[Rfam]
The record is a 127-nucleotide RNA sequence from Pipistrellus kuhlii, which matches "Small nucleolar RNA SNORA38" in Rfam. ACA38 is a member of the H/ACA class of snoRNA that guide the sites of modification of uridines to pseudouridines.
RNA sequence: CCCUCCUACAAAGGCGUGUCUGCAGUUCCCUGUCUUUGGCCACUAAGAAUGGGAGGCAAAGAAAGAAAUGUGGACUUGGAGAAAUCUAGAACCAGCUUGCAGGUUCAAGAUCAACCAUCCCAAAUAG
Numbered sequence: 001c002c003c004u005c006c007u008a009c010a011a012a013g014g015c016g017u018g019u020c021u022g023c024a025g026u027u028c029c030c031u032g033u034c035u036u037u038g039g040c041c042a043c044u045a046a047g048a049a050u051g052g053g054a055g056g057c058a059a060a061g062a063a064a065g066a067a068a069u070g071u072g073g074a075c076u077u078g079g080a081g082a083a084a085u086c087u088a089g090a091a092c093c094a095g096c097u098u099g100c101a102g103g104u105u106c107a108a109g110a111u112c113a114a115c116c117a118u119c120c121c122a123a124a125u126a127g
Stems, first nucleotide, its partner, number of pairs: 002056005016043003020039002025029001072120003076117001094105004
Overview
The base pairs follow the family's consensus structure, which was predicted with RNAfold.